[Rfam]
RNA sequence: CCAGUAAAGGGUAAACCUGCCGAAAGACAGGGGCACAAAGUCUCGGGUCUAAUGUAGAAAUACGACGACGGCCGGACUGCCUGGG
Dot-bracket structure: (.((......((...((((.(....).))))..[))..((((.((((((.................))).])))))))..))..)

This 85-nucleotide RNA sequence from Paenibacillus sp. NFR01 belongs to the Rfam family "c-di-GMP-I-GGC riboswitch aptamer". Pairs were carried over by alignment from the consensus structure, which is taken from published work. The source organism's lineage runs through Bacteria, Bacillati, Caryophanales, Paenibacillaceae and Paenibacillus. The family is grouped with related families in Rfam's "c-di-GMP_I riboswitch clan". It scores 69 bits against the family's covariance model.